[Rfam]
RNA sequence: ACUGCCAUAACAGCCGUAGCAGAAGUGUUCACACUGUGGCCCCUGUCAGAUUCCAACAAAUCUGCUAAAUUCUGCC
Numbered sequence: 001a002c003u004g005c006c007a008u009a010a011c012a013g014c015c016g017u018a019g020c021a022g023a024a025g026u027g028u029u030c031a032c033a034c035u036g037u038g039g040c041c042c043c044u045g046u047c048a049g050a051u052u053c054c055a056a057c058a059a060a061u062c063u064g065c066u067a068a069a070u071u072c073u074g075c076c
Base pairs, nucleotide, nucleotide: 013040014039015038019075020074021073022072023071024070025037026036027035047064048063049062050061051060052059